RNA sequence: UAUGUUAAAGGUGAUGGAGUUCACCUCUAAUUACUGUCCCUCCAGGGAUAGUUGAUAACUCCUACCCAUAA
Numbered sequence: 001u002a003u004g005u006u007a008a009a010g011g012u013g014a015u016g017g018a019g020u021u022c023a024c025c026u027c028u029a030a031u032u033a034c035u036g037u038c039c040c041u042c043c044a045g046g047g048a049u050a051g052u053u054g055a056u057a058a059c060u061c062c063u064a065c066c067c068a069u070a071a
Stems, first nucleotide, its partner, number of pairs: 010025004016062006033052008
A member of the RNA family "Fluoride riboswitch aptamer (crcB RNA motif)" from bacterium HR37, 71 nucleotides long.